The family of this 77-nucleotide RNA sequence from Crocodylus porosus is "Mammalian CPEB3 ribozyme". The match comes from Rfam's covariance-model search (42 bits). Rfam's curators write: The mammalian CPEB3 ribozyme is a self cleaving RNA located in the second intron of the CPEB3 gene which belongs to a family of genes regulating messenger RNA polyadenylation. Taxonomically the source falls in Crocodylus (Eukaryota, Bilateria, Longirostres, Crocodylidae). The base pairs follow the family's consensus structure, which is taken from published work.

RNA sequence: AGUUGCACGUUUGAGACCACAGCAGAAGUGCUCACAGCACAGCCCUGUUAAGUUCUAGUGAAUCUGUGAAAUCUGCU
Numbered sequence: 001a002g003u004u005g006c007a008c009g010u011u012u013g014a015g016a017c018c019a020c021a022g023c024a025g026a027a028g029u030g031c032u033c034a035c036a037g038c039a040c041a042g043c044c045c046u047g048u049u050a051a052g053u054u055c056u057a058g059u060g061a062a063u064c065u066g067u068g069a070a071a072u073c074u075g076c077u
Stems, first nucleotide, its partner, number of pairs: 013045001015044001017042001021077006028040003049066002052063004